[Rfam]
RNA sequence: AACUCCUUGAAGGGGGCCAUAGUAGAAGCAUUCACAGUGUGACCCCUGUCAGGUAAUACUUGGUAAUACCUGCAAAUUCUGCU
Numbered sequence: 001a002a003c004u005c006c007u008u009g010a011a012g013g014g015g016g017c018c019a020u021a022g023u024a025g026a027a028g029c030a031u032u033c034a035c036a037g038u039g040u041g042a043c044c045c046c047u048g049u050c051a052g053g054u055a056a057u058a059c060u061u062g063g064u065a066a067u068a069c070c071u072g073c074a075a076a077u078u079c080u081g082c083u
Stems, first nucleotide, its partner, number of pairs: 013046004018041001021083007028040003050072006
A member of the RNA family "Mammalian CPEB3 ribozyme" from Alligator mississippiensis, 83 nucleotides long. Its family is annotated with RNA nuclease activity in the Gene Ontology. The family's consensus secondary structure is taken from published work.